[Rfam]
RNA: Guanidine-II riboswitch aptamer (mini-ykkC)
RNA sequence: CUGUAAGGACGGCCUUACGCAUUCGCUCGCAACGGGGACGGCCCC
Numbered sequence: 001c002u003g004u005a006a007g008g009a010c011g012g013c014c015u016u017a018c019g020c021a022u023u024c025g026c027u028c029g030c031a032a033c034g035g036g037g038a039c040g041g042c043c044c045c
Base pairs, nucleotide, nucleotide: 002019003018004017005016006015007014008013034045035044036043037042